[Rfam]
RNA sequence: AGCGCAGCUCCAUACUUCUUUACAUUCCAUACGAUCGUUAUGCACUAUGGGAAGUAAGGAAGCACGGAACUAGCGC
Numbered sequence: 001a002g003c004g005c006a007g008c009u010c011c012a013u014a015c016u017u018c019u020u021u022a023c024a025u026u027c028c029a030u031a032c033g034a035u036c037g038u039u040a041u042g043c044a045c046u047a048u049g050g051g052a053a054g055u056a057a058g059g060a061a062g063c064a065c066g067g068a069a070c071u072a073g074c075g076c
Stems, first nucleotide, its partner, number of pairs: 007070001009068003013064001015062009025052001027050005
This 76-nucleotide RNA sequence from Eumeta japonica belongs to the Rfam family "mir-1 microRNA precursor family". Pairs were carried over by alignment from the consensus structure, which was predicted with RNAalifold. A search with the family's covariance model found it, with a score of 51 bits. The literature on the family includes a 2001 paper in Science by Lee and Ambros, "An extensive class of small RNAs in Caenorhabditis elegans". This family represents the microRNA (miRNA) mir-1 family. miRNAs are transcribed as ~70nt precursors (modelled here) and subsequently processed by the Dicer enzyme to give a ~22nt product. In this case the mature sequence comes from the 3' arm of the precursor. The extents of the hairpin precursors are not generally known and are estimated based on hairpin prediction.